[Rfam]
Nucleotides: 099
Stems, first nucleotide, its partner, number of pairs: 002094006012083004017079004026072004
Number, partner (000 for none) and nucleotide at each position: 001000g002094a003093g004092c005091c006090a007089g008000c009000u010000c011000a012083g013082c014081c015080c016000a017079g018078c019077g020076g021000u022000u023000c024000c025000a026072u027071c028070g029069a030000c031000c032000a033000a034000c035000g036000u037000a038000u039000u040000g041000c042000u043000u044000g045000g046000a047000u048000c049000c050000u051000u052000c053000a054000a055000u056000c057000a058000c059000u060000u061000u062000c063000a064000g065000c066000g067000g068000u069029u070028u071027g072026a073000g074000a075000c076020c077019c078018g079017u080015g081014g082013g083012u084000g085000c086000u087000g088000c089007c090006u091005g092004g093003c094002u095000u096000a097000u098000a099000a
The family of this 99-nucleotide RNA sequence from Podarcis muralis is "Vault RNA". The family's RNA type in Rfam is non-coding RNA gene. It scores 54 bits against the family's covariance model. Taxonomically the source falls in Podarcis (Eukaryota, Amniota, Lepidosauria, Laterata). The family has 73 seed sequences and 2,873 matches in Rfam 15.1.